[Rfam]
RNA: Bacterial RNase P class A
Organism: Porphyromonas macacae
RNA sequence: GCAGCAGACCGGUCUGUCGCAUCGUUACGAUGAGGAACGUCCGGGCAACAUAGAGUAUCACACUUCCUAACGGGAAGCUAUCUGUGAGGGUAGAUUGCACGUAACAGAAAAGAACCGCCGUAUAAAACGCUGUAUAUGCCUUGUGCAUAAAGAGUGGAGGUAAGGGUGAAAAGGUAAGGUAAGAGCUUACCGGAUGCUUCGGUGACGAGGCAUGCCGUACGAAUUGUGAGUUGUAAGAUCAUGUACACCGGCGCUUGAGGGUUACUCGUCCGAUGUCGGGGGGUAGAUCGCUGGAGCCACCGGGUGACCGAUGGCCAAGAUAAAUGACAGACACCUGAAGGCUCGUGAGCCGUCAGGCACAGAACCCGGCUUACAGGUCUGCUGCUUCC
Dot-bracket structure: ((((((((((((((((((.(((((...)))))....[.[.[[[[[((((...[[[[.((((((((((.....)))))(.((((....)))).)((....((((...........(((((.(...................................).)))..)).......((((((.......)))))).(((((((((....)))))))).)..)))).)))))))))))...((((.......(((((......((((.]]]]))))...)))))......))))......((((.(((....))).))))..........)))))))................................]]]]]].].).))))))))))....